[Rfam]
RNA: Streptomyces RNA 1601
RNA sequence: GACGACCGGCCGGACGCGGUAGUUGUCCGGCCCUCAAGUGGAGGCUCCGAUCUCCCACCUGACCGCCCUCCGGGGCGGCGGGUCACCGGUCAGGCGGCCCCCACCGUUCCGUACGGACGGUGGAGUCGCCCGAAUGUGCGCCCCGCGGUCCACCGCGGCGGUGCUCCGGAUCGUUCGGAGUCCCGCCUGUGUACCGUCCGGGGCAUUUUUC
Numbered sequence: 001g002a003c004g005a006c007c008g009g010c011c012g013g014a015c016g017c018g019g020u021a022g023u024u025g026u027c028c029g030g031c032c033c034u035c036a037a038g039u040g041g042a043g044g045c046u047c048c049g050a051u052c053u054c055c056c057a058c059c060u061g062a063c064c065g066c067c068c069u070c071c072g073g074g075g076c077g078g079c080g081g082g083u084c085a086c087c088g089g090u091c092a093g094g095c096g097g098c099c100c101c102c103a104c105c106g107u108u109c110c111g112u113a114c115g116g117a118c119g120g121u122g123g124a125g126u127c128g129c130c131c132g133a134a135u136g137u138g139c140g141c142c143c144c145g146c147g148g149u150c151c152a153c154c155g156c157g158g159c160g161g162u163g164c165u166c167c168g169g170a171u172c173g174u175u176c177g178g179a180g181u182c183c184c185g186c187c188u189g190u191g192u193a194c195c196g197u198c199c200g201g202g203g204c205a206u207u208u209u210u211c
Base pairs, nucleotide, nucleotide: 004091005090006089007088008087009086012028013027029084030083031082032081033080035061036060038058039057040056041055042053043052063078064077065076066075067074068073093130094129095128097127101123102122103121104120105119106118107117108116140204141203142202143201144200145199146196147195148194154191155190156189157187158186159185160184161183163181164180165179166178167177